[Rfam]
RNA: isrG Hfq binding RNA
RNA sequence: CAGUAGCAGCAGCAGCAGCAGCAGCAGCAGUAGCAGCAGCAGUAGCAGCAGCAGUAGCAGCAGCAGUAGCAGCAGCAGUAGCAGCAGCAGUAGCAGCAGCAGUAGCAGCAGCAGUAGCAGCAGCAGUAGCAGCAGCUGCUACUGCUGCUGCUACUGCUGCUGCUACUGCUGCUGCUACUGCUGCUGCUACUGCUGCUGCUACUGCUGCUGCUACUGCUGCUGCUACUGCUGCUGCUACUGCUG
Numbered sequence: 001c002a003g004u005a006g007c008a009g010c011a012g013c014a015g016c017a018g019c020a021g022c023a024g025c026a027g028c029a030g031u032a033g034c035a036g037c038a039g040c041a042g043u044a045g046c047a048g049c050a051g052c053a054g055u056a057g058c059a060g061c062a063g064c065a066g067u068a069g070c071a072g073c074a075g076c077a078g079u080a081g082c083a084g085c086a087g088c089a090g091u092a093g094c095a096g097c098a099g100c101a102g103u104a105g106c107a108g109c110a111g112c113a114g115u116a117g118c119a120g121c122a123g124c125a126g127u128a129g130c131a132g133c134a135g136c137u138g139c140u141a142c143u144g145c146u147g148c149u150g151c152u153a154c155u156g157c158u159g160c161u162g163c164u165a166c167u168g169c170u171g172c173u174g175c176u177a178c179u180g181c182u183g184c185u186g187c188u189a190c191u192g193c194u195g196c197u198g199c200u201a202c203u204g205c206u207g208c209u210g211c212u213a214c215u216g217c218u219g220c221u222g223c224u225a226c227u228g229c230u231g232c233u234g235c236u237a238c239u240g241c242u243g
Stems, first nucleotide, its partner, number of pairs: 006235005012229003017224004024220003027205008037195007060076002063073002066070001084184002087181008096172006103165004108160005114121002126154002132148005138142001210217002